Small nucleolar SNORD12/SNORD106: a 95-nucleotide RNA sequence from Sinocyclocheilus rhinocerous. For this family Rfam cites "Identification of 13 novel human modification guide RNAs" (Vitali et al., Nucleic Acids Res, 2003). The family has 8 seed sequences and 2,264 matches in Rfam 15.1. Its family is annotated with RNA processing and nucleolus in the Gene Ontology. The family is grouped with related families in Rfam's "SNORD12 clan". By type it is a C/D-box small nucleolar RNA. Taxonomically the source falls in Sinocyclocheilus (Eukaryota, Metazoa, Ostariophysi, Cypriniformes).
RNA sequence: UUUGGUAGCAAUGAUGACUUAUCUUUUUUCCCCAGCAGAUCGACACUGUUGACUUUUUAUAACCAAAAAUAAGCCAUAUGAUCUGAGCAACCAUA
Dot-bracket structure: (.((((.((.............................................................................)).)))).)